[Rfam]
RNA sequence: AAGCGUUCUCAGGGCGGGGUGCAAUUCCCCACCGGCGGUGAUGGCGGUGUUCUUCGAAAGAAGGUACUGCAUGAGCCCGCGAGCGCCCGCGGCUUGCAACGAGCCGCGGGGUCAGCAGACCCGGUGCGAUCCCGGGGCCGACGGUCACAGUCCGGAUGAAAGAGAGCGCGA
Numbered sequence: 001a002a003g004c005g006u007u008c009u010c011a012g013g014g015c016g017g018g019g020u021g022c023a024a025u026u027c028c029c030c031a032c033c034g035g036c037g038g039u040g041a042u043g044g045c046g047g048u049g050u051u052c053u054u055c056g057a058a059a060g061a062a063g064g065u066a067c068u069g070c071a072u073g074a075g076c077c078c079g080c081g082a083g084c085g086c087c088c089g090c091g092g093c094u095u096g097c098a099a100c101g102a103g104c105c106g107c108g109g110g111g112u113c114a115g116c117a118g119a120c121c122c123g124g125u126g127c128g129a130u131c132c133c134g135g136g137g138c139c140g141a142c143g144g145u146c147a148c149a150g151u152c153c154g155g156a157u158g159a160a161a162g163a164g165a166g167c168g169c170g171a
Stems, first nucleotide, its partner, number of pairs: 003169008017029003031151002033140002035080004075138002083116002120136005142154003